This 81-nucleotide sequence from Pantoea ananatis belongs to the Rfam family "antisense RNA of dnaA mRNA". A search with the family's covariance model found it, with a score of 80 bits. Taxonomically the source falls in Pantoea ananatis (Bacteria, Pseudomonadati, Gammaproteobacteria, Erwiniaceae). Its family is annotated with regulation of mRNA stability in the Gene Ontology.
[Rfam]
RNA sequence: UUUGGCAUUGGGUUUACGCGCAAUAAUGCCGUUGCCGACUGCAUGCAACAGGUGAGUUUUCCCCAGGCCCGUACCGCCGUA
Number, nucleotide and partner (000 for none) at each position: 001u000002u000003u000004g000005g042006c041007a040008u000009u038010g000011g036012g035013u034014u000015u000016a032017c031018g030019c000020g029021c028022a000023a000024u000025a000026a000027u000028g021029c020030c018031g017032u016033u000034g013035c012036c011037g000038a009039c000040u007041g006042c005043a000044u000045g000046c000047a000048a000049c000050a000051g078052g077053u076054g075055a000056g074057u073058u000059u000060u000061c000062c071063c000064c000065a000066g000067g000068c000069c000070c000071g062072u000073a057074c056075c054076g053077c052078c051079g000080u000081a000